The family of this 72-nucleotide RNA from Gossypium aridum is "tRNA". The source organism's lineage runs through Eukaryota, Magnoliopsida, eudicotyledons, Malvales and Gossypium.

RNA sequence: AGGGAUAUAACUCAGCAGUAGAGUGUCACCUUGACAUGGUGGAAGUUAUUAGUUUGAGCCUGAUUAUUCCGA
Numbered sequence: 001a002g003g004g005a006u007a008u009a010a011c012u013c014a015g016c017a018g019u020a021g022a023g024u025g026u027c028a029c030c031u032u033g034a035c036a037u038g039g040u041g042g043a044a045g046u047u048a049u050u051a052g053u054u055u056g057a058g059c060c061u062g063a064u065u066a067u068u069c070c071g072a
Stems, first nucleotide, its partner, number of pairs: 002070006010024004026042005048064005

Notes
The match comes from Rfam's covariance-model search (48 bits). The base pairs follow the family's consensus structure, which is taken from published work.